RNA sequence: UGCUUGCGGCCAUGUUCCGCUGAUCCGUCAGCGACAUGCCCAGGUAGCCACGGUCUUCGAGGCUACGACGCGGUUCCGACCACGUGACCGAUCCAGUUCGCACCAGCAUCCCAUGCGCGAACGUUCGCCCCUCCCAGGGUGAUGGAUGC
Number, nucleotide and partner (000 for none) at each position: 001u000002g000003c000004u000005u000006g000007c000008g000009g000010c000011c038012a037013u036014g035015u000016u033017c000018c000019g032020c031021u030022g029023a028024u000025c000026c000027g000028u023029c022030a021031g020032c019033g016034a000035c014036a013037u012038g011039c000040c000041c000042a000043g000044g066045u065046a064047g063048c062049c061050a000051c000052g089053g088054u087055c086056u000057u000058c000059g000060a000061g049062g048063c047064u046065a045066c044067g000068a085069c084070g083071c000072g081073g080074u000075u000076c000077c000078g000079a000080c073081c072082a000083c070084g069085u068086g055087a054088c053089c052090g000091a000092u000093c000094c000095a000096g000097u000098u000099c000100g000101c000102a000103c000104c000105a000106g000107c000108a000109u000110c000111c000112c000113a000114u000115g000116c000117g149118c148119g147120a000121a000122c000123g000124u000125u142126c141127g140128c139129c138130c137131c000132u000133c000134c000135c000136a000137g130138g129139g128140u127141g126142a125143u000144g000145g000146a000147u119148g118149c117